[Rfam]
A member of the RNA family "U1 spliceosomal RNA" from Vulpes vulpes, 162 nucleotides long. The source organism's lineage runs through Eukaryota, Opisthokonta, Amniota, Caniformia and Vulpes. By type it is a spliceosomal small nuclear RNA. Rfam links the family to the GO terms mRNA 5'-splice site recognition, pre-mRNA 5'-splice site binding and U1 snRNP. The match comes from Rfam's covariance-model search (75 bits). For this family Rfam cites "The uRNA database" (Zwieb, Nucleic Acids Res, 1997).
RNA sequence: UUACUUACUUGGUUGGGGAGAUACAGUCAGGGAGGUGGUUUUCCCAGAGCGAGUUCUAUCUGUUACCCUCAGGAUGUGCUGACCCCUGCGAUUUCCUCAAAUGUGGGGAAACUCGGCUGUAUAAUUUGUGGGGGGCUGGUAGUGUAUUGGCCCUUUCCCUUG
Numbered sequence: 001u002u003a004c005u006u007a008c009u010u011g012g013u014u015g016g017g018g019a020g021a022u023a024c025a026g027u028c029a030g031g032g033a034g035g036u037g038g039u040u041u042u043c044c045c046a047g048a049g050c051g052a053g054u055u056c057u058a059u060c061u062g063u064u065a066c067c068c069u070c071a072g073g074a075u076g077u078g079c080u081g082a083c084c085c086c087u088g089c090g091a092u093u094u095c096c097u098c099a100a101a102u103g104u105g106g107g108g109a110a111a112c113u114c115g116g117c118u119g120u121a122u123a124a125u126u127u128g129u130g131g132g133g134g135g136c137u138g139g140u141a142g143u144g145u146a147u148u149g150g151c152c153c154u155u156u157c158c159c160u161u162g
Stems, first nucleotide, its partner, number of pairs: 012120002015117001016045006023039002046087002049084001051083001053080001055078001057076005089115003092111001093109002096106002138159002141156001144153001
The base pairs follow the family's consensus structure, which is taken from published work.